Background: This 86-nucleotide RNA sequence from Facklamia languida belongs to the Rfam family "SAM-III riboswitch aptamer (SMK box)". A reference for the family is Fuchs et al. (2007), "S-adenosylmethionine directly inhibits binding of 30S ribosomal subunits to the SMK box translational riboswitch RNA", Proc Natl Acad Sci U S A. Lineage of the source: Bacteria > Bacillota > Bacilli > Lactobacillales > Facklamia languida. Gene Ontology terms of the family: methionine adenosyltransferase activity and regulation of translational initiation. A search with the family's covariance model found it, with a score of 54 bits. The base pairs follow the family's consensus structure, which is taken from published work.
[Rfam]
RNA sequence: AUGCGUUACAAAGAAAAAGUUCCCGAUAGGGUCUAUGAAAGUAGAUUUGCCUUGUAACCAAAAGAAUGACUGGGGGAAAUACUAUG
Numbered sequence: 001a002u003g004c005g006u007u008a009c010a011a012a013g014a015a016a017a018a019g020u021u022c023c024c025g026a027u028a029g030g031g032u033c034u035a036u037g038a039a040a041g042u043a044g045a046u047u048u049g050c051c052u053u054g055u056a057a058c059c060a061a062a063a064g065a066a067u068g069a070c071u072g073g074g075g076g077a078a079a080u081a082c083u084a085u086g
Base pairs, nucleotide, nucleotide: 020078021077022076023075024074028052029051030050032045033044034043035042036041058073059072